The family of this 45-nucleotide RNA sequence from Lysobacter sp. Root494 is "Guanidine-II riboswitch aptamer (mini-ykkC)". Pairs were carried over by alignment from the consensus structure, which is taken from published work. Rfam's curators write: Simpler in structure and has fewer highly conserved nucleotide positions than the ykkC-yxkD leader. Despite this each of its two stem-loop structures directly bind free guanidine. Therefore, mini-ykkC RNA motif represents a distinct class of guanidine-sensing RNAs. Its crystal structure was also determined. It scores 40 bits against the family's covariance model.
RNA sequence: GAAGCGGGACGACCCGCCUCUCCAUCAUCAUCCGGGGACGGCCCC
Numbered sequence: 001g002a003a004g005c006g007g008g009a010c011g012a013c014c015c016g017c018c019u020c021u022c023c024a025u026c027a028u029c030a031u032c033c034g035g036g037g038a039c040g041g042c043c044c045c
Stems, first nucleotide, its partner, number of pairs: 001020002004017005034045004